The family of this 104-nucleotide RNA from Panicum miliaceum is "Small nucleolar RNA snoR100".
Nucleotides: 104
Stems, first nucleotide, its partner, number of pairs: 012025004038090005048079003052073003
Number, partner (000 for none) and nucleotide at each position: 001000a002000c003000a004000g005000g006000a007000a008000g009000g010000a011000a012025g013024c014023a015022u016000g017000g018000u019000a020000g021000u022015g023014u024013g025012u026000a027000c028000g029000g030000a031000g032000a033000u034000a035000a036000a037000a038090a039089g040088g041087u042086c043000u044000g045000c046000a047000u048079g049078u050077c051000u052073g053072c054071u055000u056000g057000c058000u059000g060000u061000g062000a063000u064000g065000c066000c067000u068000u069000c070000g071054g072053g073052c074000c075000u076000u077050g078049a079048u080000c081000u082000c083000g084000c085000a086042g087041g088040c089039c090038u091000g092000g093000a094000u095000u096000g097000c098000u099000a100000g101000a102000u103000a104000c

A search with the family's covariance model found it, with a score of 74 bits. The family's consensus secondary structure was predicted with WAR. The source organism's lineage runs through Eukaryota, Streptophyta, Liliopsida, commelinids and Panicum sect. Panicum. Rfam classes the family as an H/ACA-box small nucleolar RNA. The family has 9 seed sequences and 1,851 matches in Rfam 15.1. A reference for the family is Marker et al. (2002), "Experimental RNomics: identification of 140 candidates for small non-messenger RNAs in the plant Arabidopsis thaliana", Curr Biol.